RNA sequence: UCCCUGCGUAGUUCUGUAAAGAUUUUGAUCCGACGCCACUUAAAGGCUACUACAGGCACUCCUUCUCAACUCCUACUGAAUUCGUCCGCGACGUACAGAACGGUAACUUGUCGCCUAAAUAUCCAGGCAUGGGUACGCAGGGAAACCCAUCCCCUAGGGCGGAUGGGCGGCAAGGCCGAAUUGAGAGGG
Number, nucleotide and partner (000 for none) at each position: 001u000002c000003c000004c000005u000006g000007c000008g000009u000010a000011g101012u100013u099014c098015u097016g096017u095018a000019a000020a000021g067022a066023u000024u000025u000026u000027g061028a060029u000030c056031c055032g000033a000034c000035g000036c000037c000038a000039c000040u000041u000042a000043a000044a000045g000046g000047c000048u000049a000050c000051u000052a000053c000054a000055g031056g030057c000058a000059c000060u028061c027062c000063u000064u000065c000066u022067c021068a000069a000070c000071u189072c188073c187074u186075a000076c185077u184078g000079a182080a181081u180082u000083c093084g092085u000086c103087c102088g000089c000090g000091a000092c084093g083094u000095a017096c016097a015098g014099a013100a012101c011102g087103g086104u000105a000106a000107c174108u173109u172110g171111u170112c169113g168114c167115c166116u165117a000118a000119a000120u000121a164122u163123c162124c161125a000126g000127g000128c000129a150130u149131g148132g147133g146134u145135a000136c000137g000138c000139a000140g000141g000142g000143a000144a000145a134146c133147c132148c131149a130150u129151c000152c159153c158154c000155u000156a000157g000158g153159g152160c000161g124162g123163a122164u121165g116166g115167g114168c113169g112170g111171c110172a109173a108174g107175g000176c000177c000178g000179a000180a081181u080182u079183g000184a077185g076186a074187g073188g072189g071
RNA: drz-agam-2-2 ribozyme